[Rfam]
RNA sequence: AUACCCCAUGAUGCUCAGGUCCGCCGCAUCUCCUGGGUCGUGGGGUCGGUCGGCUGGUUCGCAACAUUAAGCGGUUCCUCGUGCCGCGUUGCUUGCCGGUCGACCCCCUU
Numbered sequence: 001a002u003a004c005c006c007c008a009u010g011a012u013g014c015u016c017a018g019g020u021c022c023g024c025c026g027c028a029u030c031u032c033c034u035g036g037g038u039c040g041u042g043g044g045g046u047c048g049g050u051c052g053g054c055u056g057g058u059u060c061g062c063a064a065c066a067u068u069a070a071g072c073g074g075u076u077c078c079u080c081g082u083g084c085c086g087c088g089u090u091g092c093u094u095g096c097c098g099g100u101c102g103a104c105c106c107c108c109u110u
Stems, first nucleotide, its partner, number of pairs: 003046008014037006048105011

The family of this 110-nucleotide sequence from Rhizobium tibeticum is "EcpR1".
From the family's description: Perviously named SmelC291, SmrC10, or Sra33. According to its overproduction phenotype it was renamed Elongated Cell Phenotype RNA1.